[Rfam]
RNA sequence: AGCACUCAUUUCAAGCCGUGUCGCGCGAAAUCCAAAUGCGCGUAUGGUCGGGUGACGUGCGAGAA
Dot-bracket structure: .((((((((.....((((((..(((((.........))))).))))))...)))).)))).....
Numbered sequence: 001a002g003c004a005c006u007c008a009u010u011u012c013a014a015g016c017c018g019u020g021u022c023g024c025g026c027g028a029a030a031u032c033c034a035a036a037u038g039c040g041c042g043u044a045u046g047g048u049c050g051g052g053u054g055a056c057g058u059g060c061g062a063g064a065a
Stems, first nucleotide, its partner, number of pairs: 002060004006055004015048006023041005
This 65-nucleotide sequence from Phytomonas sp. Hart1 belongs to the Rfam family "Trypanosomatid snoRNA TB10Cs1H2".
Taxonomically the source falls in Phytomonas (Eukaryota, Discoba, Kinetoplastea, Trypanosomatidae).
Pairs were carried over by alignment from the consensus structure, which was predicted with WAR.
The literature on the family includes a 2008 paper in BMC Bioinformatics by Myslyuk et al., "Psiscan: a computational approach to identify H/ACA-like and AGA-like non-coding RNA in trypanosomatid genomes".
It is annotated as an H/ACA-box small nucleolar RNA.